[Rfam]
RNA sequence: GCUGGAAUAGCUCAGUUGGUUAGAGCGUGUGGCUGUUAACCACAAGGUCGGAGGUUCAAACCCUCCUUCUAGCG
Numbered sequence: 001g002c003u004g005g006a007a008u009a010g011c012u013c014a015g016u017u018g019g020u021u022a023g024a025g026c027g028u029g030u031g032g033c034u035g036u037u038a039a040c041c042a043c044a045a046g047g048u049c050g051g052a053g054g055u056u057c058a059a060a061c062c063c064u065c066c067u068u069c070u071a072g073c074g
Base pairs, nucleotide, nucleotide: 001073002072003071004070005069006068007067010026011025012024013023028044029043030042031041032040050066051065052064053063054062
The family of this 74-nucleotide RNA sequence from Trifolium pratense is "tRNA". The organism belongs to Trifolium, within Eukaryota. The family's consensus secondary structure is taken from published work.